[Rfam]
RNA sequence: UGAUAAAGGGGUCUUCUCUUCCCUGUUCUUCCCGGAGUCGGGAAAAGCUGUGUUGAGAGGAUGGAAAAAAAGAAAA
Numbered sequence: 001u002g003a004u005a006a007a008g009g010g011g012u013c014u015u016c017u018c019u020u021c022c023c024u025g026u027u028c029u030u031c032c033c034g035g036a037g038u039c040g041g042g043a044a045a046a047g048c049u050g051u052g053u054u055g056a057g058a059g060g061a062u063g064g065a066a067a068a069a070a071a072g073a074a075a076a
Stems, first nucleotide, its partner, number of pairs: 014059005021052001023050001025048001029044006
mir-320 microRNA precursor family: a 76-nucleotide sequence from Sapajus apella. The base pairs follow the family's consensus structure, which was predicted with RNAalifold. Its family is annotated with negative regulation of gene expression, cellular response to glucose stimulus and positive regulation of stem cell proliferation in the Gene Ontology. NCBI's taxonomy places the organism under Eukaryota, Deuterostomia, Teleostomi, Cebinae, Sapajus.